[Rfam]
RNA sequence: CCUUGGGUUGAAACCCAAGGCUGCCAGAUUCCGUCGCUCCGCGACU
Number, nucleotide and partner (000 for none) at each position: 001c020002c019003u018004u017005g016006g015007g014008u013009u000010g000011a000012a000013a008014c007015c006016c005017a004018a003019g002020g001021c000022u000023g000024c000025c000026a000027g000028a000029u000030u000031c000032c000033g045034u044035c043036g042037c041038u000039c000040c000041g037042c036043g035044a034045c033046u000

Acido-Lenti-1 RNA: a 46-nucleotide sequence from Rhodopirellula baltica. Lineage of the source: Bacteria > Pseudomonadati > Planctomycetia > Rhodopirellula > Rhodopirellula baltica. The sequence is in the family's curated seed alignment. The family's consensus secondary structure is taken from published work.